[Rfam]
Nucleotides: 382
Base pairs, nucleotide, nucleotide: 001378002377003376004375005374006373007372008371009370010369011367012333013332014331015330016329017328018327020037021036022035023034024033025032026031042365043364044363046362047361048360049359050358051238052237053236054235060268062266064234065233066232067231068230069083070082071081072080073079084119085117086116087115088114120229121228125227126226127223128222129221142169143168144165145164146163149160150159151158152157177195178194179193180192181191196218197216198215199214200213201212202211203210204209242290243289244288245287252281253280254279255278256277257276261273262272263271298315299314300313301312302311303310304309
Number, partner (000 for none) and nucleotide at each position: 001378g002377c003376g004375g005374a006373u007372g008371a009370c010369c011367g012333g013332g014331u015330g016329a017328c018327c019000g020037c021036g022035u023034g024033g025032c026031u027000u028000u029000c030000g031026g032025g033024c034023c035022a036021c037020g038000a039000g040000g041000a042365a043364a044363g045000u046362c047361c048360g049359g050358a051238c052237u053236c054235c055000a056000g057000g058000a059000a060268g061000c062266g063000a064234c065233g066232g067231u068230g069083c070082c071081g072080g073079g074000u075000a076000a077000c078000g079073c080072c081071c082070g083069g084119g085117c086116g087115g088114g089000g090000a091000u092000c093000g094000g095000c096000g097000g098000g099000g100000c101000a102000a103000c104000c105000c106000g107000c108000c109000g110000g111000c112000g113000a114088c115087c116086c117085g118000a119084c120229g121228g122000a123000a124000a125227g126226c127223g128222c129221c130000a131000c132000a133000g134000a135000g136000a137000a138000c139000a140000g141000a142169c143168c144165g145164c146163c147000g148000a149160c150159g151158g152157a153000u154000u155000c156000g157152u158151c159150c160149g161000c162000a163146g164145g165144c166000a167000a168143g169142g170000g171000u172000g173000a174000a175000a176000a177195g178194g179193u180192g181191g182000a183000g184000u185000a186000a187000g188000a189000g190000c191181c192180c193179a194178c195177c196218g197216g198215g199214g200213g201212g202211c203210c204209g205000g206000c207000a208000a209204c210203g211202g212201u213200c214199c215198c216197c217000g218196c219000a220000u221129g222128g223127c224000a225000a226126g227125c228121c229120c230068c231067a232066c233065c234064g235054g236053g237052a238051g239000c240000a241000a242290u243289g244288c245287c246000g247000a248000a249000u250000a251000g252281g253280g254279g255278a256277u257276c258000c259000a260000g261273g262272g263271c264000u265000g266062c267000u268060u269000c270000c271263g272262c273261c274000a275000g276257g277256g278255u279254c280253c281252c282000g283000g284000g285000u286000a287245g288244g289243c290242a291000g292000c293000u294000a295000a296000a297000g298315c299314c300313u301312g302311u303310c304309g305000g306000c307000a308000a309304c310303g311302g312301c313300a314299g315298g316000a317000c318000g319000a320000g321000a322000g323000g324000a325000a326000u327018g328017g329016u330015c331014a332013c333012c334000a335000u336000c337000c338000g339000g340000u341000g342000c343000a344000g345000a346000c347000c348000g349000g350000a351000u352000a353000c354000a355000g356000a357000a358050u359049c360048c361047g362046g363044c364043u365042u366000a367011c368000a369010g370009g371008u372007c373006a374005u375004c376003c377002g378001c379000g380000c381000g382000c